Shown here is a 135-nucleotide RNA from Thermosporothrix hazakensis, a member of the family "FMN riboswitch aptamer (RFN element)".
[Rfam]
RNA sequence: AAAGACCUUCGGGGCAGGGUGAGGAAAGCGAAUUUCCAAUUCCCGACCGGCGGUAAAGCCCGCGACCUGCAGUAUGCAGUGGAUCUGGGGAAGUUCCAGAGCCGACGGUUACAGUCCGGAUGGGAGAAGGUUGAA
Numbered sequence: 001a002a003a004g005a006c007c008u009u010c011g012g013g014g015c016a017g018g019g020u021g022a023g024g025a026a027a028g029c030g031a032a033u034u035u036c037c038a039a040u041u042c043c044c045g046a047c048c049g050g051c052g053g054u055a056a057a058g059c060c061c062g063c064g065a066c067c068u069g070c071a072g073u074a075u076g077c078a079g080u081g082g083a084u085c086u087g088g089g090g091a092a093g094u095u096c097c098a099g100a101g102c103c104g105a106c107g108g109u110u111a112c113a114g115u116c117c118g119g120a121u122g123g124g125a126g127a128a129g130g131u132u133g134a135a
Base pairs, nucleotide, nucleotide: 004132005131006130007129008128009127010126017044018043019042046115047114048104049103050063051062052061053060058102059101067079068078084100085099086098087097088096106118107117108116
NCBI's taxonomy places the organism under Bacteria, Chloroflexota, Ktedonobacteria, Ktedonobacterales, Thermosporothrix. The base pairs follow the family's consensus structure, which is taken from published work.